Notes: The record is a 110-nucleotide sequence from Sciurus carolinensis, which matches "U5 spliceosomal RNA" in Rfam.
RNA sequence: AUACUCUGGUAUCUCUUCACAUUUUAGAAAUCUUUUGUAUUUUACUAAAAAUUUCUGUGGAGAUGAGAAAAUCUUAAACCAAUUUUUUGAGGCCUUGUUUUAGCAAGGCA
Number, nucleotide and partner (000 for none) at each position: 001a000002u000003a072004c000005u070006c000007u000008g000009g000010u000011a000012u065013c000014u063015c062016u061017u060018c059019a058020c000021a000022u000023u000024u000025u000026a000027g000028a054029a053030a052031u051032c000033u049034u048035u047036u000037g000038u000039a000040u000041u000042u000043u000044a000045c000046u000047a035048a034049a033050a000051a031052u030053u029054u028055c000056u000057g000058u019059g018060g017061a016062g015063a014064u000065g012066a000067g000068a000069a000070a005071a000072u003073c000074u000075u000076a000077a000078a000079c000080c000081a000082a000083u000084u000085u000086u000087u000088u000089g000090a000091g000092g109093c108094c107095u106096u105097g104098u000099u000100u000101u000102a000103g000104c097105a096106a095107g094108g093109c092110a000

Notes:
Rfam's curators write: U5 RNA is a component of both types of known spliceosome. The precise function of this molecule is unknown, though it is known that the 5' loop is required for splice site selection and p220 binding, and that both the 3' stem-loop and the Sm site are important for Sm protein binding and cap methylation. Lineage of the source: Eukaryota > Eumetazoa > Bilateria > Sarcopterygii > Sciurus. A search with the family's covariance model found it, with a score of 50 bits.